[Rfam]
RNA sequence: UUCUUAUCAAGAAAGACUGAGGGACAGGGCCCUGUGACGUCUUAGCAACCAUGUUGAAAGCUUGGUGCUACCUCCCUCCUGGAGCAACUGCUGCCAGGGAAGAUAAGAC
Numbered sequence: 001u002u003c004u005u006a007u008c009a010a011g012a013a014a015g016a017c018u019g020a021g022g023g024a025c026a027g028g029g030c031c032c033u034g035u036g037a038c039g040u041c042u043u044a045g046c047a048a049c050c051a052u053g054u055u056g057a058a059a060g061c062u063u064g065g066u067g068c069u070a071c072c073u074c075c076c077u078c079c080u081g082g083a084g085c086a087a088c089u090g091c092u093g094c095c096a097g098g099g100a101a102g103a104u105a106a107g108a109c
Stems, first nucleotide, its partner, number of pairs: 002108007013043005021032003026077004044069004049065002053061002073101001078098005
The family of this 109-nucleotide RNA from Pontibacter akesuensis is "SAM riboswitch aptamer (S box leader)". Taxonomically the source falls in Pontibacter (Bacteria, Pseudomonadati, Bacteroidota, Cytophagia). The base pairs follow the family's consensus structure, which is taken from published work. It scores 72 bits against the family's covariance model.